mir-9195 microRNA precursor family: an 87-nucleotide RNA sequence from Myotis myotis. The base pairs follow the family's consensus structure, which was predicted with RNAalifold. The family has 3 seed sequences and 438 matches in Rfam 15.1.
RNA sequence: AGAGGCCCUCUGCGGCCGGGAUGGAAUGCUUGCCUUGUCACCAUGGCGACAAAGCAAAUAUUCCACCAGGCCGCUCAUGCUGCCCUC
Numbered sequence: 001a002g003a004g005g006c007c008c009u010c011u012g013c014g015g016c017c018g019g020g021a022u023g024g025a026a027u028g029c030u031u032g033c034c035u036u037g038u039c040a041c042c043a044u045g046g047c048g049a050c051a052a053a054g055c056a057a058a059u060a061u062u063c064c065a066c067c068a069g070g071c072c073g074c075u076c077a078u079g080c081u082g083c084c085c086u087c
Stems, first nucleotide, its partner, number of pairs: 004084003012074006020067001022065007030057004037050003041046001